[Rfam]
RNA sequence: GUACGAUAAUAGCAAACCCGCUGAAAAGCGGCGACGCAAAGCUAAAGGGGCUAAGGCGGAUCCCGUAUCCGCUAUGCCAGCCAGUUGCCGAA
Numbered sequence: 001g002u003a004c005g006a007u008a009a010u011a012g013c014a015a016a017c018c019c020g021c022u023g024a025a026a027a028g029c030g031g032c033g034a035c036g037c038a039a040a041g042c043u044a045a046a047g048g049g050g051c052u053a054a055g056g057c058g059g060a061u062c063c064c065g066u067a068u069c070c071g072c073u074a075u076g077c078c079a080g081c082c083a084g085u086u087g088c089c090g091a092a
Stems, first nucleotide, its partner, number of pairs: 012037002018031005040086004047082002049078003056072006
A member of the RNA family "c-di-GMP-I riboswitch aptamer" from Cohnella zeiphila, 92 nucleotides long. The organism belongs to Cohnella, within Bacteria.